[Rfam]
Rfam assigns this 72-nucleotide sequence from Folsomia candida to the family "mir-34 microRNA precursor family". The literature on the family includes a 2003 paper in Science by Lim et al., "Vertebrate microRNA genes". Taxonomically the source falls in Folsomia (Eukaryota, Opisthokonta, Protostomia, Ecdysozoa). About the family: Human mir-34a was discovered computationally and later experimentally verified. The mature sequence is excised from the 5' arm of the hairpin. The family is grouped with related families in Rfam's "mir-34 clan". Its family is annotated with miRNA-mediated post-transcriptional gene silencing and RISC complex in the Gene Ontology.

RNA sequence: GGCUCGUAGGCAGUGUUCGUUAGCUGGUUUGAUUUUUAUGUUUCAAGCCACUAUCAACACUGCCGGCGAGAC
Numbered sequence: 001g002g003c004u005c006g007u008a009g010g011c012a013g014u015g016u017u018c019g020u021u022a023g024c025u026g027g028u029u030u031g032a033u034u035u036u037u038a039u040g041u042u043u044c045a046a047g048c049c050a051c052u053a054u055c056a057a058c059a060c061u062g063c064c065g066g067c068g069a070g071a072c
Base pairs, nucleotide, nucleotide: 003070004069005068006067009064010063012061013060014059015058016057017056019055021053022052023051025050026049027048028047029046030045031044032043